[Rfam]
RNA sequence: AGAAGAAAAGCCAAACUCAUCGUGAGGUGAGGACGGAAAGCCACGGGUCUUAUGGUAAGAUAGCCGGGCUGCCGACU
Numbered sequence: 001a002g003a004a005g006a007a008a009a010g011c012c013a014a015a016c017u018c019a020u021c022g023u024g025a026g027g028u029g030a031g032g033a034c035g036g037a038a039a040g041c042c043a044c045g046g047g048u049c050u051u052a053u054g055g056u057a058a059g060a061u062a063g064c065c066g067g068g069c070u071g072c073c074g075a076c077u
Base pairs, nucleotide, nucleotide: 001077011036012035016031017030018029019028020027021026034063039070040069041068042067044066045065046064047061048060049059
This 77-nucleotide RNA from Desulfonema limicola belongs to the Rfam family "c-di-GMP-I-GGC riboswitch aptamer".
The organism belongs to Desulfonema, within Bacteria.
The family's consensus secondary structure is taken from published work.
The match comes from Rfam's covariance-model search (68 bits).